RNA: Small nucleolar RNA sR22
RNA sequence: CCCGAUGAUGGGAACAGGGUAGCUGCCGAGCUGAUGAGGAAGCCGUUCCAGACUGAGG
Number, nucleotide and partner (000 for none) at each position: 001c000002c058003c057004g000005a000006u000007g000008a000009u000010g000011g049012g000013a047014a046015c045016a000017g000018g027019g026020u025021a000022g000023c000024u000025g020026c019027c018028g000029a000030g043031c042032u041033g000034a000035u000036g000037a000038g000039g000040a000041a032042g031043c030044c000045g015046u014047u013048c000049c011050a000051g000052a000053c000054u000055g000056a000057g003058g002